The record is a 153-nucleotide RNA from Pseudoprimorskyibacter insulae, which matches "Ruegeria cis2 sRNA" in Rfam.
On this family, see Rivers et al., Front Microbiol 2016: "Experimental Identification of Small Non-Coding RNAs in the Model Marine Bacterium Ruegeria pomeroyi DSS-3".
Taxonomically the source falls in Pseudoprimorskyibacter (Bacteria, Alphaproteobacteria, Rhodobacterales, Paracoccaceae).
[Rfam]
RNA sequence: GGUGCUGUUGUGCGGGGUAUAGUUGAUAAAGGCGAAGCCGCGGGCCUGAUCGAUGGUGUGGAACAGCGGGUUCCAAUCGAACAUCACCAGCAUGAAACCCGGCAGAGUGUUGGCCACGAACAUCUUGCCUGACGCGAUCAUAUUGGCACGUUG
Numbered sequence: 001g002g003u004g005c006u007g008u009u010g011u012g013c014g015g016g017g018u019a020u021a022g023u024u025g026a027u028a029a030a031g032g033c034g035a036a037g038c039c040g041c042g043g044g045c046c047u048g049a050u051c052g053a054u055g056g057u058g059u060g061g062a063a064c065a066g067c068g069g070g071u072u073c074c075a076a077u078c079g080a081a082c083a084u085c086a087c088c089a090g091c092a093u094g095a096a097a098c099c100c101g102g103c104a105g106a107g108u109g110u111u112g113g114c115c116a117c118g119a120a121c122a123u124c125u126u127g128c129c130u131g132a133c134g135c136g137a138u139c140a141u142a143u144u145g146g147c148a149c150g151u152u153g
Stems, first nucleotide, its partner, number of pairs: 003034002006032001008030002013025003037057004041052003064153005070082004087146004092141003098134001100131003103127003107123002110119003

Description: Rfam classes the family as a small RNA. Pairs were carried over by alignment from the consensus structure, which was predicted with RNAfold.